IS605-orfB-I RNA: a 199-nucleotide RNA sequence. Pairs were carried over by alignment from the consensus structure, which is taken from published work.
RNA sequence: UCUGCAUAAAUUUGUAUCAGACCAAGAGAUUUGAGCAAAUCACUUUGUGGAAGUUUAAAUUAGUAACACUAAUCUGAAAUUGAUAAAGAUUUACAUAUAAAUGAAAUUUCGGAUUACUUGGAUAACCGUAUGUCCUUUAGCAUUUAUACUAUAAAAAUAAUUUUGAAUAACUUUGUAUAAGUUUGCAAAUUACGGUUGA
Numbered sequence: 001u002c003u004g005c006a007u008a009a010a011u012u013u014g015u016a017u018c019a020g021a022c023c024a025a026g027a028g029a030u031u032u033g034a035g036c037a038a039a040u041c042a043c044u045u046u047g048u049g050g051a052a053g054u055u056u057a058a059a060u061u062a063g064u065a066a067c068a069c070u071a072a073u074c075u076g077a078a079a080u081u082g083a084u085a086a087a088g089a090u091u092u093a094c095a096u097a098u099a100a101a102u103g104a105a106a107u108u109u110c111g112g113a114u115u116a117c118u119u120g121g122a123u124a125a126c127c128g129u130a131u132g133u134c135c136u137u138u139a140g141c142a143u144u145u146a147u148a149c150u151a152u153a154a155a156a157a158u159a160a161u162u163u164u165g166a167a168u169a170a171c172u173u174u175g176u177a178u179a180a181g182u183u184u185g186c187a188a189a190u191u192a193c194g195g196u197u198g199a
Base pairs, nucleotide, nucleotide: 001051002050003049004048005047006046008044010040011039012038013037014036015035017034018033019032020031021030022028068118070116071115072114073113075111076110077109078108079107080106081105089102090101092099120135121134122133123132125196126195127194128193129192130191131157138151139150140149142147162189163188164187165186167184169182